The record is a 93-nucleotide RNA from Jaculus jaculus, which matches "mir-568 microRNA precursor family" in Rfam. Rfam 15.1 lists 131 matches to the family in 130 species.
Nucleotides: 093
Stems, first nucleotide, its partner, number of pairs: 003087004008083006015077007024069009039056007
Number, partner (000 for none) and nucleotide at each position: 001000g002000u003087a004086c005085a006084c007000c008083c009082u010081g011080u012079a013078u014000u015077a016076u017075g018074u019073a020072u021071a022000a023000a024069u025068g026067u027066a028065u029064a030063c031062a032061c033000g034000c035000u036000u037000u038000c039056u040055a041054u042053g043052u044051g045050u046000g047000u048000c049000u050045a051044c052043a053042u054041a055040u056039a057000u058000a059000u060000g061032g062031u063030g064029u065028a066027u067026a068025u069024g070000c071021u072020a073019u074018a075017c076016a077015u078013a079012u080011a081010u082009a083008g084006g085005u086004g087003u088000g089000u090000a091000u092000a093000u

Notes:
NCBI's taxonomy places the organism under Eukaryota, Metazoa, Sarcopterygii, Boreoeutheria, Jaculus.